[Rfam]
RNA: Small nucleolar RNA SNORD35
Organism: Clarias magur
RNA sequence: UGCAAAUGAUGUCUUUUCUCACGAUGGUCUUCCAAGUCCGUUUGGGCUUUGACGACAUUGCCUUAUGGCAGUACUGAUGCAUCCAG
Dot-bracket structure: ((((.........................................................................)))).....